Shown here is a 301-nucleotide RNA from Cercocebus atys, a member of the family "Mason-Pfizer monkey virus packaging signal". It scores 78 bits against the family's covariance model. Rfam's curators write: This family represents a group of sequences that are related to the Mason-Pfizer monkey virus (MPMV) packaging signal.
RNA sequence: CGGCGCGGGAGCAGCGGACUGGAAACGGACUCCGUGAGGAAGAGACGCAAACGGUCGGACCCGUGACUAAAGACAAAAGAAAAUUAAAUUUCUUCGAUCACCGGCGGGAAGGCCUCGCCGCGGUCAGAUCGAAGGUACAGCUGGCGCGUCCGAAUGGGAACCAGAAUUAAGUCAGCAUCAAAAAAAUUUAUGUAGGACAAAUUAAAAGUAAGCCUUUAUAGAUGAACCGAGGAGCUAAAGGUUAAAGGUAAUGAUUUGUUUGUAAGACAUUUUUUGGAUUUUGUUAAAAGAUACUGCCUUG
Numbered sequence: 001c002g003g004c005g006c007g008g009g010a011g012c013a014g015c016g017g018a019c020u021g022g023a024a025a026c027g028g029a030c031u032c033c034g035u036g037a038g039g040a041a042g043a044g045a046c047g048c049a050a051a052c053g054g055u056c057g058g059a060c061c062c063g064u065g066a067c068u069a070a071a072g073a074c075a076a077a078a079g080a081a082a083a084u085u086a087a088a089u090u091u092c093u094u095c096g097a098u099c100a101c102c103g104g105c106g107g108g109a110a111g112g113c114c115u116c117g118c119c120g121c122g123g124u125c126a127g128a129u130c131g132a133a134g135g136u137a138c139a140g141c142u143g144g145c146g147c148g149u150c151c152g153a154a155u156g157g158g159a160a161c162c163a164g165a166a167u168u169a170a171g172u173c174a175g176c177a178u179c180a181a182a183a184a185a186a187u188u189u190a191u192g193u194a195g196g197a198c199a200a201a202u203u204a205a206a207a208g209u210a211a212g213c214c215u216u217u218a219u220a221g222a223u224g225a226a227c228c229g230a231g232g233a234g235c236u237a238a239a240g241g242u243u244a245a246a247g248g249u250a251a252u253g254a255u256u257u258g259u260u261u262g263u264a265a266g267a268c269a270u271u272u273u274u275u276g277g278a279u280u281u282u283g284u285u286a287a288a289a290g291a292u293a294c295u296g297c298c299u300u301g
Stems, first nucleotide, its partner, number of pairs: 006028001008026001033044001035043001088136003091132002102122001104121004142163003149158003168218003171214001173212001228277001229275006239257006288300003292296001